Rfam assigns this 88-nucleotide RNA sequence to the family "GA-cis RNA". By type it is a small RNA. The family's consensus secondary structure is taken from published work.

RNA sequence: GAUAGGAGGAGCCGCAAUGAACGCAGUUCAUACUCGGAAUCGGCUCUGACAACCUGCCCCGCUGCGGAGCAGAGGGGCGAUACAUAUU
Numbered sequence: 001g002a003u004a005g006g007a008g009g010a011g012c013c014g015c016a017a018u019g020a021a022c023g024c025a026g027u028u029c030a031u032a033c034u035c036g037g038a039a040u041c042g043g044c045u046c047u048g049a050c051a052a053c054c055u056g057c058c059c060c061g062c063u064g065c066g067g068a069g070c071a072g073a074g075g076g077g078c079g080a081u082a083c084a085u086a087u088u
Stems, first nucleotide, its partner, number of pairs: 008047006017031005056078003060074001064070002